Overview
The record is a 373-nucleotide sequence from Fulvimarina endophytica, which matches "Alphaproteobacteria transfer-messenger RNA" in Rfam. Rfam describes the family as follows. Bacterial tmRNA, also known as 10Sa RNA or SsrA, is named for its dual tRNA and mRNA-like properties. Its role is to liberate the mRNA from a stalled ribosome. To accomplish this part of the tmRNA is used as a reading frame that ends in a translation stop signal. The broken mRNA is replaced in the ribosome by the tmRNA and translation of the tmRNA leads to addition of a proteolysis tag to the incomplete protein enabling recognition by a protease. Recently a number of permuted tmRNA genes have been found encoded in two parts. tmRNAs have been identified in eubacteria and some chloroplasts but are absent from archaeal and eukaryote nuclear genomes. Its family is annotated with RNA catabolic process in the Gene Ontology. The source organism's lineage runs through Bacteria, Pseudomonadati, Pseudomonadota, Aurantimonadaceae and Fulvimarina.

[Rfam]
Nucleotides: 373
Stems, first nucleotide, its partner, number of pairs: 041058007062212005072205007087191003091188003097113005114173007213228003218239003222236003339354004345370006
Number, partner (000 for none) and nucleotide at each position: 001000g002000c003000c004000c005000u006000u007000u008000c009000g010000c011000g012000a013000u014000g015000c016000g017000g018000c019000g020000a021000u022000c023000g024000c025000c026000c027000c028000u029000a030000u031000a032000u033000u034000c035000a036000g037000c038000g039000g040000u041058g042057c043056c044055g045054g046053g047052c048000a049000u050000u051000c052047g053046u054045c055044c056043g057042g058041c059000u060000a061000u062212g063211g064210c065209g066208a067000u068000a069000a070000a071000c072205g073204u074203u075202c076201g077200a078199u079000g080000c081000a082000a083000u084000a085000a086000a087191c088190c089189u090000u091188u092187c093186g094000g095000a096000c097113c098112c099111g100110g101109g102000g103000g104000c105000g106000g107000u108000a109101c110100c111099c112098g113097g114173c115172g116171c117170c118169u119168c120167c121000a122000c123000c124000c125000g126000a127000u128000c129000c130000c131000a132000u133000c134000c135000g136000u137000g138000c139000c140000g141000a142000u143000a144000a145000c146000g147000g148000c149000g150000c151000c152000g153000c154000g155000a156000u157000g158000g159000g160000a161000u162000c163000c164000g165000g166000c167120g168119g169118g170117g171116g172115c173114g174000a175000a176000a177000u178000a179000g180000g181000a182000u183000c184000g185000a186093c187092g188091a189089g190088g191087g192000c193000g194000u195000a196000a197000a198000g199078a200077u201076c202075g203074g204073a205072u206000u207000u208066u209065u210064g211063c212062u213228c214227g215226g216000a217000a218239u219238g220237g221000u222236u223235c224234c225000g226215c227214c228213g229000u230000c231000a232000u233000c234224g235223g236222g237220c238219c239218g240000u241000a242000a243000c244000a245000a246000u247000a248000g249000u250000u251000g252000c253000a254000a255000a256000c257000g258000a259000c260000a261000a262000c263000u264000a265000u266000g267000c268000g269000g270000a271000a272000g273000c274000a275000c276000g277000u278000c279000u280000c281000g282000c283000c284000g285000c286000g287000u288000a289000a290000g291000c292000g293000g294000u295000g296000c297000g298000a299000u300000a301000g302000c303000u304000u305000c306000g307000a308000a309000u310000c311000a312000a313000g314000c315000c316000c317000u318000g319000g320000g321000g322000g323000u324000u325000c326000g327000c328000a329000c330000u331000c332000c333000u334000a335000g336000g337000c338000g339354g340353g341352g342351c343000c344000c345370g346369g347368a348367g349366g350365c351342g352341c353340c354339u355000g356000g357000c358000a359000a360000c361000a362000g363000a364000a365350g366349c367348c368347u369346c370345c371000a372000c373000u